[Rfam]
RNA sequence: CGAGUGAUUCACGGUUAAGGAACUAGGCAAAAUGGUCCUGUAACUUCGGGAUAAAGGACGCCAGCCUAACAGCUGGCCGCAGAGAAUAGGCCCAGGCGACUGUUUAACAAAAACACAUGGCUAUGCAAAAUAGAAAUAUGAGGUAUAUAGCCUGACACCUGCCCGGUGCUGGAAGGUUAAGAGGAGAUGUCAUCGCAAGAGAAGCAUCGAAUUGAAGCCCCAGUAAACGGCGGCCGUAACUAUAACGGUCCUAAGGUAGCGAAAUUCCUUGUCGGGUAAGUUCCGACCUGCACGAAUGGUGUAACGAUCUGGGCACUGUCUCAACCGUGAGCUCG
Numbered sequence: 001c002g003a004g005u006g007a008u009u010c011a012c013g014g015u016u017a018a019g020g021a022a023c024u025a026g027g028c029a030a031a032a033u034g035g036u037c038c039u040g041u042a043a044c045u046u047c048g049g050g051a052u053a054a055a056g057g058a059c060g061c062c063a064g065c066c067u068a069a070c071a072g073c074u075g076g077c078c079g080c081a082g083a084g085a086a087u088a089g090g091c092c093c094a095g096g097c098g099a100c101u102g103u104u105u106a107a108c109a110a111a112a113a114c115a116c117a118u119g120g121c122u123a124u125g126c127a128a129a130a131u132a133g134a135a136a137u138a139u140g141a142g143g144u145a146u147a148u149a150g151c152c153u154g155a156c157a158c159c160u161g162c163c164c165g166g167u168g169c170u171g172g173a174a175g176g177u178u179a180a181g182a183g184g185a186g187a188u189g190u191c192a193u194c195g196c197a198a199g200a201g202a203a204g205c206a207u208c209g210a211a212u213u214g215a216a217g218c219c220c221c222a223g224u225a226a227a228c229g230g231c232g233g234c235c236g237u238a239a240c241u242a243u244a245a246c247g248g249u250c251c252u253a254a255g256g257u258a259g260c261g262a263a264a265u266u267c268c269u270u271g272u273c274g275g276g277u278a279a280g281u282u283c284c285g286a287c288c289u290g291c292a293c294g295a296a297u298g299g300u301g302u303a304a305c306g307a308u309c310u311g312g313g314c315a316c317u318g319u320c321u322c323a324a325c326c327g328u329g330a331g332c333u334c335g
Stems, first nucleotide, its partner, number of pairs: 001335004009330008018321003035059005044049001060077006078082001090314007097306002101115003119152007126143001130139003156301004161231003166228002168224005175219003181213002186208005193200002232250006251255001261288001271287006
The record is a 335-nucleotide part of an RNA from Parabacteroides chinchillae, which matches "Bacterial large subunit ribosomal RNA" in Rfam. Lineage of the source: Bacteria > Bacteroidota > Bacteroidia > Tannerellaceae > Parabacteroides. A reference for the family is Yusupov et al. (2001), "Crystal structure of the ribosome at 5.5 A resolution", Science.